[Rfam]
RNA: mir-15 microRNA precursor family
Organism: Pitta sordida
RNA sequence: CCUUAAAGUUCUGUAGCAGCACAUCAUGGUUUGCAGCUCCCGCUCAAGGUGCGAAUCAUUAUUUGCUGCUGGAGAAAUUUAAGG
Numbered sequence: 001c002c003u004u005a006a007a008g009u010u011c012u013g014u015a016g017c018a019g020c021a022c023a024u025c026a027u028g029g030u031u032u033g034c035a036g037c038u039c040c041c042g043c044u045c046a047a048g049g050u051g052c053g054a055a056u057c058a059u060u061a062u063u064u065g066c067u068g069c070u071g072g073a074g075a076a077a078u079u080u081a082a083g084g
Base pairs, nucleotide, nucleotide: 001084002083003082004081005080006079014071015070016069017068018067019066020065021064023062024061026059027058028057029056030055031054032053033052034051035050